[Rfam]
RNA sequence: UGCAAAAUAGGAUUUUAUGCGUCAAGUGUUUGGCGAAUGGGGAGUUGUCGCCAGAACGAAAAGUACGUCUUACGGUAUGAAAUCCGCACCCGUUGCA
Numbered sequence: 001u002g003c004a005a006a007a008u009a010g011g012a013u014u015u016u017a018u019g020c021g022u023c024a025a026g027u028g029u030u031u032g033g034c035g036a037a038u039g040g041g042g043a044g045u046u047g048u049c050g051c052c053a054g055a056a057c058g059a060a061a062a063g064u065a066c067g068u069c070u071u072a073c074g075g076u077a078u079g080a081a082a083u084c085c086g087c088a089c090c091c092g093u094u095g096c097a
Base pairs, nucleotide, nucleotide: 001097002096003095004094005093010085011084012083013082014081015080016079017078018077019076020074021073022072026057027056029055030054031053032052033051034050035049036048040091041090042089044087061071062070063069
Shown here is a 97-nucleotide sequence from Blautia luti, a member of the family "THF (Tetrahydrofolate) riboswitch aptamer". Rfam's curators write: Tetrahydrofolate (THF) riboswitch was first reported for Ames et al. as an RNA motif in 5' untranslated (5'-UTR)regions of folate transport and biosynthesis genes in Firmicutes genomes. The family's consensus secondary structure is taken from published work. A search with the family's covariance model found it, with a score of 88 bits. For this family Rfam cites "A eubacterial riboswitch class that senses the coenzyme tetrahydrofolate" (Ames et al., Chem Biol, 2010). Rfam 15.1 lists 747 matches to the family in 747 species.